Rfam assigns this 66-nucleotide sequence from Gomphosphaeria aponina to the family "Glutamine riboswitch aptamer (glnA leader)".
Its family is annotated with glutamine binding in the Gene Ontology.
A reference for the family is Ames and Breaker (2011), "Bacterial aptamers that selectively bind glutamine", RNA Biol.
Nucleotides: 066
Base pairs, nucleotide, nucleotide: 003062004061005060006059007058009024010023011022012021013020027063033053034052035051036050037049
Number, partner (000 for none) and nucleotide at each position: 001000a002000u003062c004061g005060u006059u007058c008000a009024u010023c011022u012021g013020c014000c015000c016000a017000a018000g019000a020013g021012c022011a023010g024009a025000c026000g027063g028000a029000a030000g031000u032000a033053a034052g035051a036050a037049g038000c039000c040000c041000g042000u043000u044000u045000a046000u047000g048000c049037u050036u051035u052034c053033u054000g055000a056000a057000g058007g059006a060005a061004c062003g063027c064000u065000c066000c